[Rfam]
RNA sequence: UGACCCCAUGCGGGAGAGAGGCGACAAGAUAUGGUCGCCCGCCGAAGGAGCAAGCGCCCCUGCUAAACUCUCAGGCAUUUGGACCGCUGGGCGAUG
Numbered sequence: 001u002g003a004c005c006c007c008a009u010g011c012g013g014g015a016g017a018g019a020g021g022c023g024a025c026a027a028g029a030u031a032u033g034g035u036c037g038c039c040c041g042c043c044g045a046a047g048g049a050g051c052a053a054g055c056g057c058c059c060c061u062g063c064u065a066a067a068c069u070c071u072c073a074g075g076c077a078u079u080u081g082g083a084c085c086g087c088u089g090g091g092c093g094a095u096g
Stems, first nucleotide, its partner, number of pairs: 006091002010087004020039006041076003044072002048070003054063002

Rfam assigns this 96-nucleotide RNA from Terasakiella magnetica to the family "Glycine riboswitch aptamer".
The organism belongs to Terasakiella, within Bacteria.